[Rfam]
RNA sequence: UGGCGCCCAACGUGGGGCUCCAGCACGGGGGAUCCAGUGAAGGACGCCGUUCGAGUGGCCGGCAAAAAGGAAAAGAAAAGAGGGAACGACGUGGGAACCUGCUGCGUCUGCACCCCUCGGGUAAGUGAACGGUGAUUAUGGGGCAAGCAUUCAUUGAGCCAAGAUAAGACGUUCGUUGAAGGACUAGGAAAGGCUAUAAAGGCACGAGGAGUAAAGGUGAAAAACAAGCAUUUAUGUCAGUAUUUUGAUUAUGUUAAGGAAGUUUGUCCUU
Numbered sequence: 001u002g003g004c005g006c007c008c009a010a011c012g013u014g015g016g017g018c019u020c021c022a023g024c025a026c027g028g029g030g031g032a033u034c035c036a037g038u039g040a041a042g043g044a045c046g047c048c049g050u051u052c053g054a055g056u057g058g059c060c061g062g063c064a065a066a067a068a069g070g071a072a073a074a075g076a077a078a079a080g081a082g083g084g085a086a087c088g089a090c091g092u093g094g095g096a097a098c099c100u101g102c103u104g105c106g107u108c109u110g111c112a113c114c115c116c117u118c119g120g121g122u123a124a125g126u127g128a129a130c131g132g133u134g135a136u137u138a139u140g141g142g143g144c145a146a147g148c149a150u151u152c153a154u155u156g157a158g159c160c161a162a163g164a165u166a167a168g169a170c171g172u173u174c175g176u177u178g179a180a181g182g183a184c185u186a187g188g189a190a191a192g193g194c195u196a197u198a199a200a201g202g203c204a205c206g207a208g209g210a211g212u213a214a215a216g217g218u219g220a221a222a223a224a225c226a227a228g229c230a231u232u233u234a235u236g237u238c239a240g241u242a243u244u245u246u247g248a249u250u251a252u253g254u255u256a257a258g259g260a261a262g263u264u265u266g267u268c269c270u271u
Stems, first nucleotide, its partner, number of pairs: 006031003012026003039047001080118003083114002090106005124150001125148001155198002158194003205247005211241002215233005256271005
Overview
Shown here is a 271-nucleotide RNA from Molossus molossus, a member of the family "Mason-Pfizer monkey virus packaging signal". The family's consensus secondary structure was predicted with PFOLD. It scores 114 bits against the family's covariance model.